[Rfam]
RNA sequence: AGUAGUAGCAAAUAUUCAAAUGAGAACUUUGAAGACCGAAGUGGAGAAGGGUUCCAUGAGAACAGCAUUUGGUCAUGGGUUACUCGAUCCUAAGACAUAGGGAAACUCCUUGUAAUACAUUUGUUCUUAUGAACAUGUAGUCAAAAGGGAAUGAGGUUCAUAUUCCUCAAGCUGGAUGUGGUAGCUAUGUGGCAACACAAAUAAGCUCGGAGACAUCUGCAUGUGCAACUGGAAGAGUUCUCUUUUCUUCUUAACAGUCUAUCUCCCUGAAUGGAUUGUCCAGAGCUAGGGAUAUAUGGCUGGCAGAGCAGUUCACCAUCGAAUUGUCAGUGAUGCUCAUGACGAUCCUUGAAAAUCCGAGUAAGAUUAUCUAAUCACACCAGGUCGUACCCAUAACCGCAUCAGGUCUCCAAGGUUAGCAGCCUCUGGUCGA
Number, nucleotide and partner (000 for none) at each position: 001a000002g000003u000004a000005g000006u000007a000008g000009c000010a000011a000012a000013u000014a000015u033016u032017c031018a030019a029020a028021u000022g000023a000024g000025a000026a000027c000028u020029u019030u018031g017032a016033a015034g431035a430036c429037c428038g000039a000040a000041g000042u000043g411044g410045a409046g408047a000048a000049g391050g390051g000052u000053u000054c078055c077056a076057u075058g074059a073060g000061a000062a000063c071064a070065g000066c000067a000068u000069u000070u064071g063072g000073u059074c058075a057076u056077g055078g054079g000080u000081u000082a000083c000084u000085c387086g386087a385088u000089c148090c147091u000092a000093a000094g142095a141096c112097a111098u000099a000100g109101g108102g107103a000104a000105a000106c000107u102108c101109c100110u000111u097112g096113u000114a000115a000116u000117a000118c000119a000120u000121u000122u135123g134124u133125u000126c000127u000128u000129a000130u000131g000132a000133a124134c123135a122136u000137g000138u000139a000140g000141u095142c094143a000144a000145a000146a000147g090148g089149g000150a000151a000152u169153g168154a167155g166156g165157u000158u000159c000160a000161u000162a000163u000164u000165c156166c155167u154168c153169a152170a000171g000172c383173u382174g381175g380176a000177u379178g378179u377180g376181g375182u373183a372184g000185c000186u000187a000188u199189g198190u197191g196192g000193c000194a000195a000196c191197a190198c189199a188200a000201a000202u000203a000204a000205g000206c361207u360208c359209g358210g357211a356212g000213a000214c000215a346216u345217c344218u000219g000220c341221a340222u339223g338224u000225g336226c335227a000228a331229c330230u329231g251232g250233a249234a248235g247236a246237g000238u000239u000240c000241u000242c000243u000244u000245u000246u236247c235248u234249u233250c232251u231252u000253a000254a000255c302256a301257g300258u299259c298260u000261a000262u000263c000264u292265c291266c290267c289268u288269g287270a000271a000272u282273g281274g280275a000276u000277u000278g000279u000280c274281c273282a272283g000284a000285g000286c000287u269288a268289g267290g266291g265292a264293u000294a000295u000296a000297u000298g259299g258300c257301u256302g255303g000304c000305a000306g000307a000308g000309c326310a325311g324312u323313u322314c321315a000316c000317c000318a000319u000320c000321g314322a313323a312324u311325u310326g309327u000328c000329a230330g229331u228332g000333a000334u000335g226336c225337u000338c223339a222340u221341g220342a000343c000344g217345a216346u215347c000348c000349u000350u000351g000352a000353a000354a000355a000356u211357c210358c209359g208360a207361g206362u000363a000364a000365g000366a000367u000368u000369a000370u000371c000372u183373a182374a000375u181376c180377a179378c178379a177380c175381c174382a173383g172384g000385u087386c086387g085388u000389a000390c050391c049392c000393a000394u000395a000396a000397c406398c405399g000400c000401a000402u000403c000404a000405g398406g397407u000408c046409u045410c044411c043412a000413a425414g424415g423416u422417u000418a000419g000420c000421a000422g416423c415424c414425u413426c000427u000428g037429g036430u035431c034432g000433a000
Shown here is a 433-nucleotide part of an RNA from Lepeophtheirus salmonis, a member of the family "Eukaryotic large subunit ribosomal RNA". Rfam 15.1 lists 107,465 matches to the family in 2,616 species. For this family Rfam cites "Crystal structure of the ribosome at 5.5 A resolution" (Yusupov et al., Science, 2001). It is one of the family's seed sequences. NCBI's taxonomy places the organism under Eukaryota, Metazoa, Pancrustacea, Copepoda, Lepeophtheirus.